[Rfam]
RNA: Guanidine-II riboswitch aptamer (mini-ykkC)
Organism: Vibrio parahaemolyticus
RNA sequence: AAGUGAGGACGACCUCACCGCUCUAUCUUUUCUCGGGGACGACCCCA
Numbered sequence: 001a002a003g004u005g006a007g008g009a010c011g012a013c014c015u016c017a018c019c020g021c022u023c024u025a026u027c028u029u030u031u032c033u034c035g036g037g038g039a040c041g042a043c044c045c046c047a
Base pairs, nucleotide, nucleotide: 003018004017005016006015007014008013035046036045037044038043